About this RNA:
This 38-nucleotide RNA sequence from Candidatus Psychracetigena formicireducens belongs to the Rfam family "Selenocysteine insertion sequence 4". Rfam links the family to the GO term selenocysteine incorporation. The family's RNA type in Rfam is cis-regulatory element. NCBI's taxonomy places the organism under Bacteria, Bacillati, Candidatus Lithacetigenota, Candidatus Psychracetigena.

RNA sequence: GGGACCUGCACGCGUUGCGGCGCAACGCUGGUUAAAGA
Numbered sequence: 001g002g003g004a005c006c007u008g009c010a011c012g013c014g015u016u017g018c019g020g021c022g023c024a025a026c027g028c029u030g031g032u033u034a035a036a037g038a
Stems, first nucleotide, its partner, number of pairs: 005031002013027006
Dot-bracket structure: ....((......((((((...))))))..)).......